[Rfam]
RNA sequence: GUUCCCGGUGAUGUUUUUCGACUGAACCAUGCUAAUGCUGAUGACUGCAUGACGACUUUUUUUCUUAAAUGUGCUGAGGGAACU
Numbered sequence: 001g002u003u004c005c006c007g008g009u010g011a012u013g014u015u016u017u018u019c020g021a022c023u024g025a026a027c028c029a030u031g032c033u034a035a036u037g038c039u040g041a042u043g044a045c046u047g048c049a050u051g052a053c054g055a056c057u058u059u060u061u062u063u064c065u066u067a068a069a070u071g072u073g074c075u076g077a078g079g080g081a082a083c084u
Stems, first nucleotide, its partner, number of pairs: 001083005

A member of the RNA family "Small nucleolar RNA snoR53Y" from Morus notabilis, 84 nucleotides long. A search with the family's covariance model found it, with a score of 62 bits. Clan: snoR53 clan. The family has 7 seed sequences and 513 matches in Rfam 15.1. A reference for the family is Brown et al. (2001), "Multiple snoRNA gene clusters from Arabidopsis", RNA.